[Rfam]
RNA: ctRNA
RNA sequence: AUACAAAAUUAACAAAUAGCAUAGUUAAGUAUAUUUGGAUUUGUCGUUCCACAAACUUUGGUCGGGGAGUGGGCGACUUCUUUUUUUAUUUUGCU
Numbered sequence: 001a002u003a004c005a006a007a008a009u010u011a012a013c014a015a016a017u018a019g020c021a022u023a024g025u026u027a028a029g030u031a032u033a034u035u036u037g038g039a040u041u042u043g044u045c046g047u048u049c050c051a052c053a054a055a056c057u058u059u060g061g062u063c064g065g066g067g068a069g070u071g072g073g074c075g076a077c078u079u080c081u082u083u084u085u086u087u088a089u090u091u092u093g094c095u
Stems, first nucleotide, its partner, number of pairs: 005036003014030001017027003043077005049072004